Notes:
The record is a 130-nucleotide sequence from Jaculus jaculus, which matches "Small nucleolar RNA SNORA38" in Rfam. The match comes from Rfam's covariance-model search (124 bits). Pairs were carried over by alignment from the consensus structure, which was predicted with RNAfold. ACA38 is a member of the H/ACA class of snoRNA that guide the sites of modification of uridines to pseudouridines. Rfam links the family to the GO terms RNA processing, nucleolus and Cajal body. The family has 25 seed sequences and 628 matches in Rfam 15.1.
[Rfam]
RNA sequence: CCCUCCUACAAAGGCGUGUUUUUGGUUCCCUGUCCUUGAACAUGUAAGAAUUGGAGGCAAAUAAUGUGGAUAUGGAGAAAUCUGUGGUCAGCAUGUUACUUGCAGGCUUGGGAUCAACCAUUCCACACAG
Dot-bracket structure: .(((((........(((((((..((...)).......)))))))........)))))..........(((...................(((.(((.....))).)))............))).......